[Rfam]
RNA sequence: CGUAUGAUGCUGCCGCCAGCGGCAUAAAAUCGGCUAUGGCUCCGCGGCCUGUGCCUGCACAGCAUUAAAUACAUUCAGGUAUCU
Numbered sequence: 001c002g003u004a005u006g007a008u009g010c011u012g013c014c015g016c017c018a019g020c021g022g023c024a025u026a027a028a029a030u031c032g033g034c035u036a037u038g039g040c041u042c043c044g045c046g047g048c049c050u051g052u053g054c055c056u057g058c059a060c061a062g063c064a065u066u067a068a069a070u071a072c073a074u075u076c077a078g079g080u081a082u083c084u
Stems, first nucleotide, its partner, number of pairs: 015048003019045004023038004049062005
Dot-bracket structure: ..............(((.((((((((........))))...)))))))(((((....)))))......................
RNA: Peptidase-S11 RNA